[Rfam]
RNA sequence: UCGCGAAGCUGGGGGUGCCCCCGCGCAGGAAUGUGCCUGGGGCUGAGAGAUACACCCUUCGAACCUGAUCCGGCUCAUACCGGCGAAGGAAAGCUUCCCGCUGUUCCC
Numbered sequence: 001u002c003g004c005g006a007a008g009c010u011g012g013g014g015g016u017g018c019c020c021c022c023g024c025g026c027a028g029g030a031a032u033g034u035g036c037c038u039g040g041g042g043c044u045g046a047g048a049g050a051u052a053c054a055c056c057c058u059u060c061g062a063a064c065c066u067g068a069u070c071c072g073g074c075u076c077a078u079a080c081c082g083g084c085g086a087a088g089g090a091a092a093g094c095u096u097c098c099c100g101c102u103g104u105u106c107c108c
Base pairs, nucleotide, nucleotide: 006096007095008094009093010092011058012057013056014055016052017043018042019041020040021039064089065088066087070083071082072081073080
RNA: TPP riboswitch aptamer (THI element)
Organism: Longimonas halophila